About this RNA
Rfam assigns this 119-nucleotide RNA sequence from Streptosporangiaceae bacterium NEAU-GS5 to the family "Group II catalytic intron D1-D4-2". The family has 144 seed sequences and 1,231 matches in Rfam 15.1. The source organism's lineage runs through Bacteria, Actinomycetota, Actinomycetes, Streptosporangiales and Streptosporangiaceae. Rfam describes the family as follows. Group II introns are found in rRNA, tRNA and mRNA of organelles in fungi, plants and protists, and also in mRNA in bacteria. The pairing is the family consensus, mapped onto this sequence. Its family is annotated with Group II intron splicing in the Gene Ontology.
RNA sequence: GGAGGUUGGCCCUCCGGCGCCGUCCUUCGGGGGAUGGUGUCAAACCGCUUCAUGCCGCGGUGGCUGAAGACCCUCGUAGUGAGCGAUGAGGAAAAGGCGCACUGUGGGAGGCGCGGAGG
Numbered sequence: 001g002g003a004g005g006u007u008g009g010c011c012c013u014c015c016g017g018c019g020c021c022g023u024c025c026u027u028c029g030g031g032g033g034a035u036g037g038u039g040u041c042a043a044a045c046c047g048c049u050u051c052a053u054g055c056c057g058c059g060g061u062g063g064c065u066g067a068a069g070a071c072c073c074u075c076g077u078a079g080u081g082a083g084c085g086a087u088g089a090g091g092a093a094a095a096g097g098c099g100c101a102c103u104g105u106g107g108g109a110g111g112c113g114c115g116g117a118g119g
Stems, first nucleotide, its partner, number of pairs: 001015005016041006023034004046119001048091006054080002057077003062072002
Dot-bracket structure: (((((.....)))))((((((.((((....)))).))))))....(.((((((((.(((..((.......))..))).)).....))))))...........................)